[Rfam]
RNA: U5 spliceosomal RNA
Organism: Denticeps clupeoides
RNA sequence: ACACUCUGAGUUCUCUUCAACUCGUAUAAAUCGUUCGCCUUUUACUAAAGGUUUCCGUGGAGAGGACUAGCAUGAGUUUUUAAUCAUUUAACCUGGCUCGUCGGAUUCUCGCUUUGGGUGCGAGAU
Dot-bracket structure: ..((((..(((((((((((........(((((.((...........)).)))))...))))))))))).....))))...........................(.((((((.......)))))))